[Rfam]
This 58-nucleotide sequence from Salmo salar belongs to the Rfam family "mir-196 microRNA precursor family". The source organism's lineage runs through Eukaryota, Gnathostomata, Actinopteri, Clupeocephala and Salmo. Rfam's curators put it in the seed alignment. The base pairs follow the family's consensus structure, which was predicted with PFOLD.
RNA sequence: UAGGUAGUUUCAUGUUGUUGGGAUCCAUUUUCUACCUCUACAACACGAAACUGUCUGA
Numbered sequence: 001u002a003g004g005u006a007g008u009u010u011c012a013u014g015u016u017g018u019u020g021g022g023a024u025c026c027a028u029u030u031u032c033u034a035c036c037u038c039u040a041c042a043a044c045a046c047g048a049a050a051c052u053g054u055c056u057g058a
Stems, first nucleotide, its partner, number of pairs: 001057010013045006020038003